[Rfam]
RNA sequence: CGUAUCCUCUGACCCUUCUUAGUUCAACCAAAUGAACUAAAAUUUUAAAAUAACACAAUUUUUUGAAAAACUAGUUCAUUUGUUUGAACUAAGGAGGGUCACAGGAUACCCUG
Numbered sequence: 001c002g003u004a005u006c007c008u009c010u011g012a013c014c015c016u017u018c019u020u021a022g023u024u025c026a027a028c029c030a031a032a033u034g035a036a037c038u039a040a041a042a043u044u045u046u047a048a049a050a051u052a053a054c055a056c057a058a059u060u061u062u063u064u065g066a067a068a069a070a071c072u073a074g075u076u077c078a079u080u081u082g083u084u085u086g087a088a089c090u091a092a093g094g095a096g097g098g099u100c101a102c103a104g105g106a107u108a109c110c111c112u113g
Stems, first nucleotide, its partner, number of pairs: 002109007010101018029082011
Dot-bracket structure: .(((((((.((((((((((((((((((.(((((((((((................................))))))))))).)))))))))))))))))).)))))))....